[Rfam]
RNA sequence: CACGAGUUUGAGGCCACAGCAGAAGUGCUCAUGGCGCACUGUCAGAUUCCAGUGAACCUGCAAGUUCUGCU
Numbered sequence: 001c002a003c004g005a006g007u008u009u010g011a012g013g014c015c016a017c018a019g020c021a022g023a024a025g026u027g028c029u030c031a032u033g034g035c036g037c038a039c040u041g042u043c044a045g046a047u048u049c050c051a052g053u054g055a056a057c058c059u060g061c062a063a064g065u066u067c068u069g070c071u
Base pairs, nucleotide, nucleotide: 013039018071019070020069021068022067023066024065025037026036027035043060044059045058047056048055049054
Rfam assigns this 71-nucleotide RNA sequence from Alligator mississippiensis to the family "Mammalian CPEB3 ribozyme". The mammalian CPEB3 ribozyme is a self cleaving RNA located in the second intron of the CPEB3 gene which belongs to a family of genes regulating messenger RNA polyadenylation. The family's consensus secondary structure is taken from published work.